RNA sequence: CCCCAAUGAGGAAGAAUUCCCAUGAAAAAGAUAGGAAGUGCCGUCUGACACUUUAAACAAACAGUUAC
Numbered sequence: 001c002c003c004c005a006a007u008g009a010g011g012a013a014g015a016a017u018u019c020c021c022a023u024g025a026a027a028a029a030g031a032u033a034g035g036a037a038g039u040g041c042c043g044u045c046u047g048a049c050a051c052u053u054u055a056a057a058c059a060a061a062c063a064g065u066u067a068c
Stems, first nucleotide, its partner, number of pairs: 014065001035054006

Shown here is a 68-nucleotide sequence from Beta vulgaris, a member of the family "Small nucleolar RNA U49". The family's RNA type in Rfam is C/D-box small nucleolar RNA. Pairs were carried over by alignment from the consensus structure, which was predicted with CMfinder. It scores 48 bits against the family's covariance model. Its Rfam clan is "SNORD49 clan".